A member of the RNA family "U7 small nuclear RNA" from Mus spicilegus, 66 nucleotides long.
NCBI's taxonomy places the organism under Eukaryota, Teleostomi, Muridae, Mus, Mus.
On this family, see Mowry and Steitz, Science 1987: "Identification of the human U7 snRNP as one of several factors involved in the 3' end maturation of histone premessenger RNA's".
The base pairs follow the family's consensus structure, which was predicted with PFOLD.
Animal histone pre-mRNAs are spliced by a different mechanism than nuclear pre-mRNAs and self-splicing introns. This processing involves the U7 snRNP, which contains only one RNA species: U7. The 5' end of U7 RNA is thought to base-pair to a conserved spacer element downstream of the cleavage site in histone pre-mRNA. This family contains a number of annotated U7 pseudogenes.
RNA sequence: AAAUUUUCAUAGUUCUUUUAGGAUUUUUUUUCUAAUAGGAUUUCUGACGAAGGUUAGAAAUCCCAA
Numbered sequence: 001a002a003a004u005u006u007u008c009a010u011a012g013u014u015c016u017u018u019u020a021g022g023a024u025u026u027u028u029u030u031u032c033u034a035a036u037a038g039g040a041u042u043u044c045u046g047a048c049g050a051a052g053g054u055u056a057g058a059a060a061u062c063c064c065a066a
Stems, first nucleotide, its partner, number of pairs: 038063011